The family of this 74-nucleotide RNA sequence from a Plautia stali symbiont is "MicA sRNA". It scores 78 bits against the family's covariance model. Lineage of the source: Bacteria > Pseudomonadati > Pseudomonadota > Enterobacterales > Enterobacteriaceae. The family's consensus secondary structure was predicted with WAR. Its family is annotated with mRNA binding in the Gene Ontology.

RNA sequence: GAAAGACACGCAUUUGUUAUCAUCAUCCCUGACAACAAAGAUGUUAAUUUAGGCCACAGUGAUGUGGCCAUUUU
Numbered sequence: 001g002a003a004a005g006a007c008a009c010g011c012a013u014u015u016g017u018u019a020u021c022a023u024c025a026u027c028c029c030u031g032a033c034a035a036c037a038a039a040g041a042u043g044u045u046a047a048u049u050u051a052g053g054c055c056a057c058a059g060u061g062a063u064g065u066g067g068c069c070a071u072u073u074u
Base pairs, nucleotide, nucleotide: 024043025042026041027040030037031036052069053068054067055066056065057064058063